[Rfam]
RNA sequence: GCUAGCUCUGGAGUGUGACAAUGGUGUUUGUGUAGAGUGAAAUCAAACGCCAUUAUCACACUAAAUAGCUCGGG
Numbered sequence: 001g002c003u004a005g006c007u008c009u010g011g012a013g014u015g016u017g018a019c020a021a022u023g024g025u026g027u028u029u030g031u032g033u034a035g036a037g038u039g040a041a042a043u044c045a046a047a048c049g050c051c052a053u054u055a056u057c058a059c060a061c062u063a064a065a066u067a068g069c070u071c072g073g074g
Stems, first nucleotide, its partner, number of pairs: 012062007020054011